[Rfam]
RNA sequence: GCCCAUUGAUAAGUACUUGAGCAGCAGGAGGUUGCCAGAAAUCAACUCCUGCGGCACUAGUACUUAGUAACGGGA
Numbered sequence: 001g002c003c004c005a006u007u008g009a010u011a012a013g014u015a016c017u018u019g020a021g022c023a024g025c026a027g028g029a030g031g032u033u034g035c036c037a038g039a040a041a042u043c044a045a046c047u048c049c050u051g052c053g054g055c056a057c058u059a060g061u062a063c064u065u066a067g068u069a070a071c072g073g074g075a
Stems, first nucleotide, its partner, number of pairs: 002074003006070002010066008019057001024052007
This 75-nucleotide RNA from Cloeon dipterum belongs to the Rfam family "mir-252 microRNA precursor family". The family's consensus secondary structure was predicted with RNAalifold. The literature on the family includes a 2009 paper in BMC Genomics by Li et al., "Direct sequencing and expression analysis of a large number of miRNAs in Aedes aegypti and a multi-species survey of novel mosquito miRNAs". The match comes from Rfam's covariance-model search (51 bits). Gene Ontology terms of the family: RISC complex and miRNA-mediated post-transcriptional gene silencing. Its Rfam clan is "mir-252 microRNA precursor family". Rfam 15.1 lists 422 matches to the family in 306 species.